[Rfam]
RNA: c-di-GMP-I-GGC riboswitch aptamer
RNA sequence: UUCGAUAAAGGCAAACCCGUCGUGAGGCGGGGACGCAAAGCCAUGGGUCUCGCUCCAGAGAUUGCCAGGUUCCCGAAA
Numbered sequence: 001u002u003c004g005a006u007a008a009a010g011g012c013a014a015a016c017c018c019g020u021c022g023u024g025a026g027g028c029g030g031g032g033a034c035g036c037a038a039a040g041c042c043a044u045g046g047g048u049c050u051c052g053c054u055c056c057a058g059a060g061a062u063u064g065c066c067a068g069g070u071u072c073c074c075g076a077a078a
Stems, first nucleotide, its partner, number of pairs: 001078001003075002011036002016031006034064001039071004044067003047062003